[Rfam]
RNA sequence: CGUGCCGGGGUGGACAGGCCCUGCGGGGAGCUAACCCUAAUGGCGGCUGCGCCCCUCACGCUCGCCCGCUGUUUUACUCGCUGACUUUCAGCGGGCGGAGGGAGCGGUCCGGGGAAAGGGAGGGAGGAAAAAAAAGUCCGGCCUCAAAAACGUCAGCGAGGGGGAUCCUCACCCCGGCCCACCCUGGGGUCCCUGUCCCUCGCCUGCAUCACCCUGUCCCUCACCGGUGAUGCUCCCGCCGUCGCCCCUCGCGGAGGCCGCGGUCGGUGGGCCCAGCGCCAGUACCGCCGCGAAGAGCUCGUCUCUGUCAGCCUCGGCGGCGGCGGGGACCAGAGGGCCGGUCCGCCCAGCCUGGGCAGCCUGGGGACCCCAUCAGAACAAAACGGGCGCGGCGCCGCCGGGCGCUGAGCAGCCGCGGCUCCCUCAGACAUGGGGUGCGCGGCCGGCGCCGCCCGAACACCC
Numbered sequence: 001c002g003u004g005c006c007g008g009g010g011u012g013g014a015c016a017g018g019c020c021c022u023g024c025g026g027g028g029a030g031c032u033a034a035c036c037c038u039a040a041u042g043g044c045g046g047c048u049g050c051g052c053c054c055c056u057c058a059c060g061c062u063c064g065c066c067c068g069c070u071g072u073u074u075u076a077c078u079c080g081c082u083g084a085c086u087u088u089c090a091g092c093g094g095g096c097g098g099a100g101g102g103a104g105c106g107g108u109c110c111g112g113g114g115a116a117a118g119g120g121a122g123g124g125a126g127g128a129a130a131a132a133a134a135a136g137u138c139c140g141g142c143c144u145c146a147a148a149a150a151c152g153u154c155a156g157c158g159a160g161g162g163g164g165a166u167c168c169u170c171a172c173c174c175c176g177g178c179c180c181a182c183c184c185u186g187g188g189g190u191c192c193c194u195g196u197c198c199c200u201c202g203c204c205u206g207c208a209u210c211a212c213c214c215u216g217u218c219c220c221u222c223a224c225c226g227g228u229g230a231u232g233c234u235c236c237c238g239c240c241g242u243c244g245c246c247c248c249u250c251g252c253g254g255a256g257g258c259c260g261c262g263g264u265c266g267g268u269g270g271g272c273c274c275a276g277c278g279c280c281a282g283u284a285c286c287g288c289c290g291c292g293a294a295g296a297g298c299u300c301g302u303c304u305c306u307g308u309c310a311g312c313c314u315c316g317g318c319g320g321c322g323g324c325g326g327g328g329a330c331c332a333g334a335g336g337g338c339c340g341g342u343c344c345g346c347c348c349a350g351c352c353u354g355g356g357c358a359g360c361c362u363g364g365g366g367a368c369c370c371c372a373u374c375a376g377a378a379c380a381a382a383a384c385g386g387g388c389g390c391g392g393c394g395c396c397g398c399c400g401g402g403c404g405c406u407g408a409g410c411a412g413c414c415g416c417g418g419c420u421c422c423c424u425c426a427g428a429c430a431u432g433g434g435g436u437g438c439g440c441g442g443c444c445g446g447c448g449c450c451g452c453c454c455g456a457a458c459a460c461c462c
Base pairs, nucleotide, nucleotide: 004178005177006176007175008174009173010172011171012170013169017167019164020163021162022161053102054101055100056099057098063097064096065095066094067093068092069091070090071089080157081156082155083154084153085152086150087149088148185372186371187370188369189368190367214341215340216339218337219336220335221334222333235327236326237325238324239323240322241321243319244318245317246316259292260291261290262289263288265287266286267285268284270280271279272278294306295305296304297303385454386453387452388451391450392449393448394447395446396445413442414441415440416439417438420435421434422433423432
Background:
Rfam assigns this 462-nucleotide RNA sequence from Pardalotus punctatus to the family "Vertebrate telomerase RNA". About the family: Telomerase is a ribonucleoprotein reverse transcriptase that synthesises telomeric DNA. Telomerase RNAs differ greatly in sequence and structure between vertebrates, ciliates and yeasts, but they share a 5' pseudoknot structure close to the template sequence. The family has 37 seed sequences and 523 matches in Rfam 15.1. The base pairs follow the family's consensus structure, which is taken from published work.